[Rfam]
The record is a 79-nucleotide RNA from Pogona vitticeps, which matches "Small nucleolar RNA SNORD79" in Rfam. Its Rfam clan is "SNORD74 clan". The literature on the family includes a 1998 paper in Mol Cell Biol by Smith and Steitz, "Classification of gas5 as a multi-small-nucleolar-RNA (snoRNA) host gene and a member of the 5'-terminal oligopyrimidine gene family reveals common features of snoRNA host genes". Taxonomically the source falls in Pogona (Eukaryota, Euteleostomi, Sauria, Iguania). The family has 28 seed sequences and 784 matches in Rfam 15.1. The family's consensus secondary structure was predicted with PFOLD. The match comes from Rfam's covariance-model search (68 bits).

RNA sequence: UACUGUUCAUGAUGAUAUUGUGGAUAACAAUGGGAAUCUCUCUGAAAGGCAGUGAAGAGAAAUUUACACUGAAACGGUA
Numbered sequence: 001u002a003c004u005g006u007u008c009a010u011g012a013u014g015a016u017a018u019u020g021u022g023g024a025u026a027a028c029a030a031u032g033g034g035a036a037u038c039u040c041u042c043u044g045a046a047a048g049g050c051a052g053u054g055a056a057g058a059g060a061a062a063u064u065u066a067c068a069c070u071g072a073a074a075c076g077g078u079a
Base pairs, nucleotide, nucleotide: 001079002078003077004076005075006074007073